The record is a 102-nucleotide RNA sequence from Nomascus leucogenys, which matches "Y RNA" in Rfam. The source organism's lineage runs through Eukaryota, Metazoa, Eumetazoa, Bilateria and Nomascus. Rfam classes the family as a non-coding RNA gene.
RNA sequence: GGCUAGUCCAAGUGCAGUGGUGUUUACGACUAAUUUGUCAUAACCAGUUAUAGAUCUCUUUGUUCCAUUUCCACUCCCACUGCUUCACUUGACUAGCCUUUA
Numbered sequence: 001g002g003c004u005a006g007u008c009c010a011a012g013u014g015c016a017g018u019g020g021u022g023u024u025u026a027c028g029a030c031u032a033a034u035u036u037g038u039c040a041u042a043a044c045c046a047g048u049u050a051u052a053g054a055u056c057u058c059u060u061u062g063u064u065c066c067a068u069u070u071c072c073a074c075u076c077c078c079a080c081u082g083c084u085u086c087a088c089u090u091g092a093c094u095a096g097c098c099u100u101u102a
Base pairs, nucleotide, nucleotide: 001098002097003096004095005094006093007092008091010090011089014086016081017080018079019078020077022076028064029063030062032060033059